Rfam assigns this 76-nucleotide RNA sequence from Crocodylus porosus to the family "Mammalian CPEB3 ribozyme". NCBI's taxonomy places the organism under Eukaryota, Sauria, Longirostres, Crocodylidae, Crocodylus.
Nucleotides: 076
Base pairs, nucleotide, nucleotide: 013044014043015042016041020076021075022074023073024072025071027039028038048065049064050063051062052061053060
Number, partner (000 for none) and nucleotide at each position: 001000u002000a003000a004000c005000u006000g007000c008000c009000a010000u011000a012000a013044g014043g015042g016041c017000c018000a019000g020076g021075g022074c023073a024072g025071a026000c027039g028038c029000c030000c031000c032000u033000a034000c035000g036000u037000u038028g039027c040000a041016g042015c043014c044013c045000u046000g047000u048065c049064a050063g051062g052061u053060u054000a055000u056000a057000a058000u059000g060053a061052a062051u063050c064049u065048g066000c067000a068000a069000a070000u071025u072024c073023u074022g075021c076020u